[Rfam]
RNA sequence: AAAAAGGGCUUCUGUCGUGCAUGGCACGGGGGGGCUGCUCGCCACCCCUGCGGAAUCGACAUCAAGAGAUUUCGGAAGCACAAUUUUUGUAAGAGAGGGCUGCCGGUAACCGCUUGUUCCGGCCCCCCA
Numbered sequence: 001a002a003a004a005a006g007g008g009c010u011u012c013u014g015u016c017g018u019g020c021a022u023g024g025c026a027c028g029g030g031g032g033g034g035c036u037g038c039u040c041g042c043c044a045c046c047c048c049u050g051c052g053g054a055a056u057c058g059a060c061a062u063c064a065a066g067a068g069a070u071u072u073c074g075g076a077a078g079c080a081c082a083a084u085u086u087u088u089g090u091a092a093g094a095g096a097g098g099g100c101u102g103c104c105g106g107u108a109a110c111c112g113c114u115u116g117u118u119c120c121g122g123c124c125c126c127c128c129a
Stems, first nucleotide, its partner, number of pairs: 008079005013026005027050006034042002051074007097127003102123005108118003
The record is a 129-nucleotide sequence from Sylvia atricapilla, which matches "U11 spliceosomal RNA" in Rfam. The match comes from Rfam's covariance-model search (106 bits). The organism belongs to Sylvia, within Eukaryota. The literature on the family includes a 1988 paper in Proc Natl Acad Sci U S A by Montzka and Steitz, "Additional low-abundance human small nuclear ribonucleoproteins: U11, U12, etc".